[Rfam]
About this RNA
A member of the RNA family "mir-72 microRNA precursor family" from Owenia fusiformis, 66 nucleotides long. Gene Ontology terms of the family: miRNA-mediated post-transcriptional gene silencing and RISC complex. The source organism's lineage runs through Eukaryota, Opisthokonta, Spiralia, Lophotrochozoa and Owenia. Its Rfam clan is "mir-31 microRNA precursor family".
RNA sequence: ACUAGGCAAGAUGUUGGCAUAGCUGAGUUAUGGUGCAAUCUCAGCUACGCUAUAUGUUGCCAAUUU
Numbered sequence: 001a002c003u004a005g006g007c008a009a010g011a012u013g014u015u016g017g018c019a020u021a022g023c024u025g026a027g028u029u030a031u032g033g034u035g036c037a038a039u040c041u042c043a044g045c046u047a048c049g050c051u052a053u054a055u056g057u058u059g060c061c062a063a064u065u066u
Stems, first nucleotide, its partner, number of pairs: 005061003011055004016051003022045005